Description
The record is an 88-nucleotide RNA sequence from Cnephaeus nilssonii, which matches "mir-9195 microRNA precursor family" in Rfam. NCBI's taxonomy places the organism under Eukaryota, Deuterostomia, Chordata, Laurasiatheria, Cnephaeus.
[Rfam]
RNA sequence: AGAGGCCCAUCGUGGCUGGGGGCGGAACGCUUGCCUCAUCACCACGGUGACAAAGCAAGCAUUCUGCCAGGCCGCUCACGCUGCCCGC
Numbered sequence: 001a002g003a004g005g006c007c008c009a010u011c012g013u014g015g016c017u018g019g020g021g022g023c024g025g026a027a028c029g030c031u032u033g034c035c036u037c038a039u040c041a042c043c044a045c046g047g048u049g050a051c052a053a054a055g056c057a058a059g060c061a062u063u064c065u066g067c068c069a070g071g072c073c074g075c076u077c078a079c080g081c082u083g084c085c086c087g088c
Stems, first nucleotide, its partner, number of pairs: 004085003012075006020068001022067006029060006039050004